[Rfam]
RNA sequence: AUUGUAGAAGCGUCAUUGUAGAAGCGUGCUCGUCGCGACCCCUGCCAGCCCUUUUCAGGGCUGCAAUUCUACA
Numbered sequence: 001a002u003u004g005u006a007g008a009a010g011c012g013u014c015a016u017u018g019u020a021g022a023a024g025c026g027u028g029c030u031c032g033u034c035g036c037g038a039c040c041c042c043u044g045c046c047a048g049c050c051c052u053u054u055u056c057a058g059g060g061c062u063g064c065a066a067u068u069c070u071a072c073a
Stems, first nucleotide, its partner, number of pairs: 010041001012039003017073007024036003046063007
This 73-nucleotide RNA sequence from Parnassius apollo belongs to the Rfam family "Mammalian CPEB3 ribozyme". Rfam's curators write: The mammalian CPEB3 ribozyme is a self cleaving RNA located in the second intron of the CPEB3 gene which belongs to a family of genes regulating messenger RNA polyadenylation.